[Rfam]
This 77-nucleotide RNA sequence from Ceratodon purpureus belongs to the Rfam family "Small nucleolar RNA snoR53Y". Rfam links the family to the GO terms RNA processing and nucleolus. A reference for the family is Brown et al. (2001), "Multiple snoRNA gene clusters from Arabidopsis", RNA. The family is grouped with related families in Rfam's "snoR53 clan". Rfam 15.1 lists 513 matches to the family in 230 species.
RNA sequence: AUUCCCAGUGAUUAUAAUACCAUGCUAAUCCUGAAAACAAGUGAUUACAAAAUAGAUAUCCGUUAAAUGAGGGAAUU
Number, nucleotide and partner (000 for none) at each position: 001a076002u075003u074004c073005c072006c000007a000008g000009u000010g000011a000012u000013u000014a000015u000016a000017a000018u000019a000020c000021c000022a000023u000024g000025c000026u000027a000028a000029u000030c000031c000032u000033g000034a000035a000036a000037a000038c000039a000040a000041g000042u000043g000044a000045u000046u000047a000048c000049a000050a000051a000052a000053u000054a000055g000056a000057u000058a000059u000060c000061c000062g000063u000064u000065a000066a000067a000068u000069g000070a000071g000072g005073g004074a003075a002076u001077u000